RNA: PhotoRC-II RNA
RNA sequence: UAACACAUAUUUGCUCCCGCUAACCAAGACCUAUGGGAGAAUAAAUUACGUCUUUCAUAUCGUUAAGUGAAGGGAUUGAUGGAAAUAUAGUAUCGC
Numbered sequence: 001u002a003a004c005a006c007a008u009a010u011u012u013g014c015u016c017c018c019g020c021u022a023a024c025c026a027a028g029a030c031c032u033a034u035g036g037g038a039g040a041a042u043a044a045a046u047u048a049c050g051u052c053u054u055u056c057a058u059a060u061c062g063u064u065a066a067g068u069g070a071a072g073g074g075a076u077u078g079a080u081g082g083a084a085a086u087a088u089a090g091u092a093u094c095g096c
Stems, first nucleotide, its partner, number of pairs: 014039005026054005060082007